[Rfam]
RNA sequence: CGCGCGGCAGGACGGAAAGACCCCGGGACCUUUACUACAGCUUGGUAUUGGUGCUCGGUUCGGCUUGUGUAGGAUAGGUGGGAGACCGGGAAGCGGCCACGCCAGUGGCCGUGGAGUCGUUGUUGAAAUACCACUCUGGUCGGAUUGGGUGUCUCAACCUCGGGCCCUGAACGGGUUCAGGGACAGUGCCUGGUGGGUAGUUUAACUGGGGCGGUUGCCUCCCAAAGAGUAACGGAGGCGCCCAAAGGUUCCCUCAGCCUGGUUGGUAAUCAGGUGACGAGUGUAAGUGCACAAGGGAGCUUGACUGCGAGACCGACGGGUCGAGCAGGGACGAAAGUCGGGACUAGUGAUCCGGCACCACCUGGUGGAAGGGGUGUCGCUCAACGGAUAAAAGGUACCCCGGGGAUAACAGGCUGAUCUUGCCCAAGAGUCCAUAUCGACGGCAUGGUUUGGCACCUCGAUGUCGGCUCGUCGCAUCCUGGGGCUGGAGUAGGUCCCAAGGGUUGGGCUGUUCGCCCAUUAAAGCGGUACGCGAGCUGGGUUUAGAACGUCGUGAGACAGUUCGGUCCCUAUCCGCCGCGCGCGCA
Numbered sequence: 001c002g003c004g005c006g007g008c009a010g011g012a013c014g015g016a017a018a019g020a021c022c023c024c025g026g027g028a029c030c031u032u033u034a035c036u037a038c039a040g041c042u043u044g045g046u047a048u049u050g051g052u053g054c055u056c057g058g059u060u061c062g063g064c065u066u067g068u069g070u071a072g073g074a075u076a077g078g079u080g081g082g083a084g085a086c087c088g089g090g091a092a093g094c095g096g097c098c099a100c101g102c103c104a105g106u107g108g109c110c111g112u113g114g115a116g117u118c119g120u121u122g123u124u125g126a127a128a129u130a131c132c133a134c135u136c137u138g139g140u141c142g143g144a145u146u147g148g149g150u151g152u153c154u155c156a157a158c159c160u161c162g163g164g165c166c167c168u169g170a171a172c173g174g175g176u177u178c179a180g181g182g183a184c185a186g187u188g189c190c191u192g193g194u195g196g197g198u199a200g201u202u203u204a205a206c207u208g209g210g211g212c213g214g215u216u217g218c219c220u221c222c223c224a225a226a227g228a229g230u231a232a233c234g235g236a237g238g239c240g241c242c243c244a245a246a247g248g249u250u251c252c253c254u255c256a257g258c259c260u261g262g263u264u265g266g267u268a269a270u271c272a273g274g275u276g277a278c279g280a281g282u283g284u285a286a287g288u289g290c291a292c293a294a295g296g297g298a299g300c301u302u303g304a305c306u307g308c309g310a311g312a313c314c315g316a317c318g319g320g321u322c323g324a325g326c327a328g329g330g331a332c333g334a335a336a337g338u339c340g341g342g343a344c345u346a347g348u349g350a351u352c353c354g355g356c357a358c359c360a361c362c363u364g365g366u367g368g369a370a371g372g373g374g375u376g377u378c379g380c381u382c383a384a385c386g387g388a389u390a391a392a393a394g395g396u397a398c399c400c401c402g403g404g405g406a407u408a409a410c411a412g413g414c415u416g417a418u419c420u421u422g423c424c425c426a427a428g429a430g431u432c433c434a435u436a437u438c439g440a441c442g443g444c445a446u447g448g449u450u451u452g453g454c455a456c457c458u459c460g461a462u463g464u465c466g467g468c469u470c471g472u473c474g475c476a477u478c479c480u481g482g483g484g485c486u487g488g489a490g491u492a493g494g495u496c497c498c499a500a501g502g503g504u505u506g507g508g509c510u511g512u513u514c515g516c517c518c519a520u521u522a523a524a525g526c527g528g529u530a531c532g533c534g535a536g537c538u539g540g541g542u543u544u545a546g547a548a549c550g551u552c553g554u555g556a557g558a559c560a561g562u563u564c565g566g567u568c569c570c571u572a573u574c575c576g577c578c579g580c581g582c583g584c585g586c587a
Stems, first nucleotide, its partner, number of pairs: 001583008010575003014570002022404006028396005034201004041193002044190004050153016067136001077135005084118003093112008158181003162178006204216004217239006240385001242342002248300006254280002257275006281290002305328004311322003330339003353379007361372002413454003417451001418448002421445004428438002465540001466538004470532001471529005478503002481498006505519005546564004550559003
This 587-nucleotide part of an RNA from Pseudonocardia asaccharolytica belongs to the Rfam family "Bacterial large subunit ribosomal RNA". NCBI's taxonomy places the organism under Bacteria, Actinomycetota, Pseudonocardiales, Pseudonocardiaceae, Pseudonocardia asaccharolytica. The family's consensus secondary structure is taken from published work.